A member of the RNA family "mir-2807 microRNA precursor family" from Bombyx mori, 86 nucleotides long. For this family Rfam cites "Novel microRNAs in silkworm (Bombyx mori)" (Cai et al., Funct Integr Genomics, 2010). It scores 58 bits against the family's covariance model. Rfam links the family to the GO terms miRNA-mediated post-transcriptional gene silencing and RISC complex. The organism belongs to Bombyx, within Eukaryota.
[Rfam]
RNA sequence: UUAACUUAAAUUUGUAUGGGGAGUUGGUGCGUUUGCCUGCGUUAACCGCUAGGAGCGCUGUUCUAACUGCAUACAAAUUGGACUUA
Dot-bracket structure: ........((((((((.(...((((((.(((.....((..((.....))..)).....))).)))))).).)))))))).......